[Rfam]
RNA sequence: GCCGUUCAGGGAUGAGGCGUGGAACAAGCACCGAGCAGUAUCUGACACCCGUGGGGAGUGGCUCUGCGCUGCAUUUCUUCCGAGAGCAGC
Numbered sequence: 001g002c003c004g005u006u007c008a009g010g011g012a013u014g015a016g017g018c019g020u021g022g023a024a025c026a027a028g029c030a031c032c033g034a035g036c037a038g039u040a041u042c043u044g045a046c047a048c049c050c051g052u053g054g055g056g057a058g059u060g061g062c063u064c065u066g067c068g069c070u071g072c073a074u075u076u077c078u079u080c081c082g083a084g085a086g087c088a089g090c
Base pairs, nucleotide, nucleotide: 001090002089004087005086
Rfam assigns this 90-nucleotide sequence from Nipponia nippon to the family "Small nucleolar RNA U83B". Pairs were carried over by alignment from the consensus structure. About the family: U83B belongs to the C/D family of snoRNAs. U83B like U83A has no documented RNA target and they share the same host gene with the C/D box snoRNA U43 (RPL3). N.B. U83A/B/C have no sequence similarity with the U83 snoRNA that was cloned by Jady and Kiss (2000). On this family, see Jady and Kiss, Nucleic Acids Res 2000: "Characterisation of the U83 and U84 small nucleolar RNAs: two novel 2'-O-ribose methylation guide RNAs that lack complementarities to ribosomal RNAs". Rfam classes the family as a C/D-box small nucleolar RNA. The family has 21 seed sequences and 966 matches in Rfam 15.1.